[Rfam]
The record is a 227-nucleotide RNA from Streptomyces populi, which matches "Streptomyces sRNA 4677" in Rfam. Pairs were carried over by alignment from the consensus structure. Located in the intergenic region between anti-sigma factor SCO4677 gene and a putative regulatory protein gene SCO4676. scr4677 expression requires the SCO4677 activity and scr4677 sRNA itself seem to affect the levels of the SCO4676-associated transcripts.
RNA sequence: CGUCCUGGUGGCGCGCGAUGCCUUUCAAAGCCUUUGGGGAAAUACCGACCCACCAAACCCGACCUGCUCGCCCGCGAGUUGGGGUGCCACUCGUUCGGGUGAUGGGAGCCUCGAUCGGCCGGUUUGGUGGGGUACGGUCGCGGCACACGACCACAAACAGAGAACGGCCCCCGGCAGGACGGCAAUCCCGACGAGGGCCUGACCACUCAGGAAGAGAUACCUUCCCA
Numbered sequence: 001c002g003u004c005c006u007g008g009u010g011g012c013g014c015g016c017g018a019u020g021c022c023u024u025u026c027a028a029a030g031c032c033u034u035u036g037g038g039g040a041a042a043u044a045c046c047g048a049c050c051c052a053c054c055a056a057a058c059c060c061g062a063c064c065u066g067c068u069c070g071c072c073c074g075c076g077a078g079u080u081g082g083g084g085u086g087c088c089a090c091u092c093g094u095u096c097g098g099g100u101g102a103u104g105g106g107a108g109c110c111u112c113g114a115u116c117g118g119c120c121g122g123u124u125u126g127g128u129g130g131g132g133u134a135c136g137g138u139c140g141c142g143g144c145a146c147a148c149g150a151c152c153a154c155a156a157a158c159a160g161a162g163a164a165c166g167g168c169c170c171c172c173g174g175c176a177g178g179a180c181g182g183c184a185a186u187c188c189c190g191a192c193g194a195g196g197g198c199c200u201g202a203c204c205a206c207u208c209a210g211g212a213a214g215a216g217a218u219a220c221c222u223u224c225c226c227a
Stems, first nucleotide, its partner, number of pairs: 007207004016074002020071001088101005118139001166199005172193002177188003210225005